[Rfam]
RNA sequence: UCUUAGUAACAAUGACUGCCGAAGACAGUAGGUACCGUAAGGUAUAAGUUGAAAACGCCUACCGAGGAAUAUAAGAUAAUCAAACGAUGACUUAUAAUAACCCUCUCUGUCUUUGAUAGAGAGGGUUUUCUCAUGUAGAGA
Numbered sequence: 001u002c003u004u005a006g007u008a009a010c011a012a013u014g015a016c017u018g019c020c021g022a023a024g025a026c027a028g029u030a031g032g033u034a035c036c037g038u039a040a041g042g043u044a045u046a047a048g049u050u051g052a053a054a055a056c057g058c059c060u061a062c063c064g065a066g067g068a069a070u071a072u073a074a075g076a077u078a079a080u081c082a083a084a085c086g087a088u089g090a091c092u093u094a095u096a097a098u099a100a101c102c103c104u105c106u107c108u109g110u111c112u113u114u115g116a117u118a119g120a121g122a123g124g125g126u127u128u129u130c131u132c133a134u135g136u137a138g139a140g141a
Stems, first nucleotide, its partner, number of pairs: 028062006034043003100126010
This 141-nucleotide RNA from Anaeromicropila herbilytica belongs to the Rfam family "Ribosomal protein L10 leader". The base pairs follow the family's consensus structure, which was predicted with CMfinder. The source organism's lineage runs through Bacteria, Bacillati, Bacillota, Lachnospiraceae and Anaeromicropila.